Background:
The record is a 118-nucleotide RNA sequence from Carya illinoinensis, which matches "mir-172 microRNA precursor family" in Rfam. NCBI's taxonomy places the organism under Eukaryota, Viridiplantae, Euphyllophyta, fabids, Carya.
RNA sequence: UUGUUUGCGGGUGUUGCAUCUUCAAGAUUCACAUGGGAAAGCACGGUUGAUGAUGCAAAAUCUCUCUGCCAAAGCUCUUUGAAAUUGAGAAUCUUGAUGAUGCUGCAUCGGCAAGAAA
Numbered sequence: 001u002u003g004u005u006u007g008c009g010g011g012u013g014u015u016g017c018a019u020c021u022u023c024a025a026g027a028u029u030c031a032c033a034u035g036g037g038a039a040a041g042c043a044c045g046g047u048u049g050a051u052g053a054u055g056c057a058a059a060a061u062c063u064c065u066c067u068g069c070c071a072a073a074g075c076u077c078u079u080u081g082a083a084a085u086u087g088a089g090a091a092u093c094u095u096g097a098u099g100a101u102g103c104u105g106c107a108u109c110g111g112c113a114a115g116a117a118a
Stems, first nucleotide, its partner, number of pairs: 010109005016103005022097009032087002
Description:
The base pairs follow the family's consensus structure, which was predicted with PFOLD. Rfam describes the family as follows. mir-172 has been experimentally verified in Arabidopsis thaliana. This family is thought to target mRNAs coding for APETALA2-like transcription factors. The mature sequence is excised from the 3' arm of the hairpin. Its family is annotated with miRNA-mediated post-transcriptional gene silencing and RISC complex in the Gene Ontology.